This 201-nucleotide sequence belongs to the Rfam family "small nucleolar RNA snoR143". Its family is annotated with nucleolus and RNA processing in the Gene Ontology. It scores 120 bits against the family's covariance model. The base pairs follow the family's consensus structure, which was predicted with RNAalifold.

RNA sequence: UUGCACUGCGUAUCAAAGGCUACCCCAAAAAAUUUAUUCUUGAAAUAUAGAAUAAAUAAAUAAUGGAGUAGCCUCUGAUCGACUGUGCAGAAAUGGAAUGCCGAUCUUUUUGAUCGGCGGCGGCCAGACAACCGUUGAGAUGAAUCCACAGAGGAGUUCCUUUUUUCGCCGGAGCUUCUCUACUAAAUUCAUCUCAUAUUC
Dot-bracket structure: .(((((..((..(((.(((((((.(((....................................))).))))))).))).))...)))))...............................................((((((((.........(((((((..........)))))))..........))))))))......